The record is an 84-nucleotide RNA from Ruminococcus sp. AF31-8BH, which matches "skipping-rope RNA" in Rfam. Rfam classes the family as a small RNA.

[Rfam]
RNA sequence: AUUAUUUGAGGUGGUAAAUUUCGUUGCAACCACACACCCUAUGGGUUAAAAGAGAUGCAGGAGCCGCGACGCCUGCCAAAUAAU
Numbered sequence: 001a002u003u004a005u006u007u008g009a010g011g012u013g014g015u016a017a018a019u020u021u022c023g024u025u026g027c028a029a030c031c032a033c034a035c036a037c038c039c040u041a042u043g044g045g046u047u048a049a050a051a052g053a054g055a056u057g058c059a060g061g062a063g064c065c066g067c068g069a070c071g072c073c074u075g076c077c078a079a080a081u082a083a084u
Stems, first nucleotide, its partner, number of pairs: 001084008011033005024069004035052001036046004057076005